The record is a 114-nucleotide RNA sequence from Paenibacillus pini, which matches "TPP riboswitch aptamer (THI element)" in Rfam. Pairs were carried over by alignment from the consensus structure, which is taken from published work. Vitamin B(1) in its active form thiamin pyrophosphate (TPP) is an essential coenzyme that is synthesised by coupling of pyrimidine and thiazole moieties in bacteria. The source organism's lineage runs through Bacteria, Bacillati, Bacillota, Bacilli and Paenibacillus pini.
[Rfam]
RNA sequence: CAUAUGAAUCAGGGGUGCUGGAUGAAAUGGCCGGCUGAGAUUGUAUCCCACAAGAUACUGACCCUUACACCUGAUCUGGGUAAUGCCAGCGUAGGAAAAUGAUCUUCAUGGCUA
Numbered sequence: 001c002a003u004a005u006g007a008a009u010c011a012g013g014g015g016u017g018c019u020g021g022a023u024g025a026a027a028u029g030g031c032c033g034g035c036u037g038a039g040a041u042u043g044u045a046u047c048c049c050a051c052a053a054g055a056u057a058c059u060g061a062c063c064c065u066u067a068c069a070c071c072u073g074a075u076c077u078g079g080g081u082a083a084u085g086c087c088a089g090c091g092u093a094g095g096a097a098a099a100u101g102a103u104c105u106u107c108a109u110g111g112c113u114a
Base pairs, nucleotide, nucleotide: 008100009099011065012064013063014062017035018034019033020032021031043058044057045056046055070095071094072093073092076089077088078087079086